[Rfam]
RNA sequence: GUACAGUGAUGAAAACAGCCAAACCUUAGCUUCAGAAGACCUUCUAGUCUCCCUAAUACAUGCAUGAUCUCUGUAGUUCUGAGA
Number, nucleotide and partner (000 for none) at each position: 001g000002u000003a000004c000005a000006g000007u000008g000009a000010u000011g000012a000013a000014a000015a000016c000017a000018g000019c000020c000021a000022a000023a000024c000025c000026u000027u000028a000029g063030c062031u000032u060033c000034a000035g000036a000037a050038g049039a048040c047041c000042u000043u000044c000045u000046a000047g040048u039049c038050u037051c000052c000053c000054u000055a000056a000057u000058a000059c000060a032061u000062g030063c029064a000065u000066g000067a000068u000069c000070u000071c000072u000073g000074u000075a000076g000077u000078u000079c000080u000081g000082a000083g000084a000